A member of the RNA family "SAM riboswitch aptamer (S box leader)" from Clostridium sp. JN-9, 102 nucleotides long. The source organism's lineage runs through Bacteria, Bacillota, Clostridia, Eubacteriales and Clostridium. Rfam links the family to the GO term regulation of gene expression. The family's consensus secondary structure is taken from published work.
RNA sequence: CUCUUAUCAAGAGAGGUGGAGGGAAAGGGCCCUAUGAAACCCGGCAACCGAUGCAUUUGCAUUAAGGUGCCAAUUCCUGCAGAUAUUUCUGCAAGAUAAGAG
Number, nucleotide and partner (000 for none) at each position: 001c102002u101003c100004u099005u098006a097007u096008c095009a000010a000011g000012a000013g042014a000015g041016g040017u039018g000019g000020a000021g032022g031023g030024a000025a000026a000027g078028g077029g076030c023031c022032c021033u000034a000035u000036g000037a000038a000039a017040c016041c015042c013043g071044g070045c069046a068047a000048c067049c066050g063051a062052u061053g060054c000055a000056u000057u000058u000059g000060c053061a052062u051063u050064a000065a000066g049067g048068u046069g045070c044071c043072a000073a000074u000075u094076c029077c028078u027079g000080c091081a090082g089083a088084u000085a000086u000087u000088u083089c082090u081091g080092c000093a000094a075095g008096a007097u006098a005099a004100g003101a002102g001